RNA sequence: AGGUUUCAUGUGGGAGCUCAUUUUCAGCAUCCUUGUUCUUUGGGGCUAGAGCUAAGAAUAAGGAUGCUGAAAAUGAGCUCCCACAUGAACCCU
Numbered sequence: 001a002g003g004u005u006u007c008a009u010g011u012g013g014g015a016g017c018u019c020a021u022u023u024u025c026a027g028c029a030u031c032c033u034u035g036u037u038c039u040u041u042g043g044g045g046c047u048a049g050a051g052c053u054a055a056g057a058a059u060a061a062g063g064a065u066g067c068u069g070a071a072a073a074u075g076a077g078c079u080c081c082c083a084c085a086u087g088a089a090c091c092c093u
Stems, first nucleotide, its partner, number of pairs: 002092002006088002009085013023071010034060002037057004
Shown here is a 93-nucleotide sequence from Geotrypetes seraphini, a member of the family "mir-1684 microRNA precursor family". Pairs were carried over by alignment from the consensus structure, which was predicted with RNAalifold.